[Rfam]
RNA sequence: UCCGUGGCGACGCGGAAUCUGAAGGAAGCAGGAGGCAAAGCCUUGAUCCGAGGUACACGAAUCACAUUCGAGGUUGUUCUAUCUGGAUAAGAUUGCAAAACAAAUCAAAGUCCAAAAUAUCUCCAGAAGAUAGAGCAAUAAAUGUGGCGGAUAGAUGAGGUGAAAGUGGUCGGA
Numbered sequence: 001u002c003c004g005u006g007g008c009g010a011c012g013c014g015g016a017a018u019c020u021g022a023a024g025g026a027a028g029c030a031g032g033a034g035g036c037a038a039a040g041c042c043u044u045g046a047u048c049c050g051a052g053g054u055a056c057a058c059g060a061a062u063c064a065c066a067u068u069c070g071a072g073g074u075u076g077u078u079c080u081a082u083c084u085g086g087a088u089a090a091g092a093u094u095g096c097a098a099a100a101c102a103a104a105u106c107a108a109a110g111u112c113c114a115a116a117a118u119a120u121c122u123c124c125a126g127a128a129g130a131u132a133g134a135g136c137a138a139u140a141a142a143u144g145u146g147g148c149g150g151a152u153a154g155a156u157g158a159g160g161u162g163a164a165a166g167u168g169g170u171c172g173g174a
Stems, first nucleotide, its partner, number of pairs: 001016006029173001031171002035167002040161006046152005062147006073139003077135007085113004091106004

Group II catalytic intron D1-D4-3: a 174-nucleotide RNA from Ureibacillus massiliensis. Lineage of the source: Bacteria > Bacilli > Caryophanales > Caryophanaceae > Ureibacillus massiliensis. The match comes from Rfam's covariance-model search (146 bits).